[Rfam]
RNA: Ribosomal protein L19 leader
Organism: Bacillus salinus
RNA sequence: ACGAUGUUCCGCUGCAAACAUAGUUGUGCAAGAGCAUCUG
Numbered sequence: 001a002c003g004a005u006g007u008u009c010c011g012c013u014g015c016a017a018a019c020a021u022a023g024u025u026g027u028g029c030a031a032g033a034g035c036a037u038c039u040g
Stems, first nucleotide, its partner, number of pairs: 003038007013030004018025001